Shown here is a 74-nucleotide sequence from Emergencia timonensis, a member of the family "Fluoride riboswitch aptamer (crcB RNA motif)".
RNA sequence: UAAAUGCCAGGGAAUGAAGUUCUCCCCUGGUAUUUGCCAAAACCACUGUCAAAGUUGAUGACUUCUGCAUAGUU
Number, nucleotide and partner (000 for none) at each position: 001u000002a000003a000004a000005u000006g000007c000008c000009a000010g026011g025012g024013a023014a000015u000016g065017a064018a063019g062020u061021u060022c000023u013024c012025c011026c010027c000028u000029g000030g000031u000032a000033u000034u000035u000036g000037c000038c000039a000040a000041a000042a000043c000044c000045a055046c054047u053048g000049u000050c000051a000052a000053a047054g046055u045056u000057g000058a000059u000060g021061a020062c019063u018064u017065c016066u000067g000068c000069a000070u000071a000072g000073u000074u000
Gene Ontology terms of the family: positive regulation of gene expression and response to fluoride. For this family Rfam cites "Widespread genetic switches and toxicity resistance proteins for fluoride" (Baker et al., Science, 2012). The source organism's lineage runs through Bacteria, Bacillati, Clostridia, Peptostreptococcales and Emergencia.